[Rfam]
RNA sequence: GGCCUAUUUUGCGGCGGCGGAGCUCGACCGCCGGUUCAAACCAUGAAAGCCUUCAUCGACGAUCACCGCGAGGCAUACGGGGUCGAGCCGAUCUGCAAAGUGCUGCCGAUCGCCCCG
Number, nucleotide and partner (000 for none) at each position: 001g000002g000003c000004c000005u000006a000007u000008u000009u000010u000011g000012c000013g000014g000015c000016g032017g031018c030019g029020g028021a000022g000023c000024u000025c000026g000027a000028c020029c019030g018031c017032c016033g000034g000035u000036u000037c000038a000039a000040a000041c000042c000043a000044u000045g000046a000047a000048a000049g000050c000051c000052u000053u000054c000055a000056u000057c000058g000059a000060c000061g000062a000063u000064c000065a000066c000067c000068g000069c000070g000071a000072g000073g000074c000075a000076u000077a000078c117079g116080g115081g114082g113083u000084c000085g000086a000087g000088c000089c112090g111091a000092u109093c108094u000095g106096c105097a104098a000099a000100g000101u000102g000103c000104u097105g096106c095107c000108g093109a092110u000111c090112g089113c082114c081115c080116c079117g078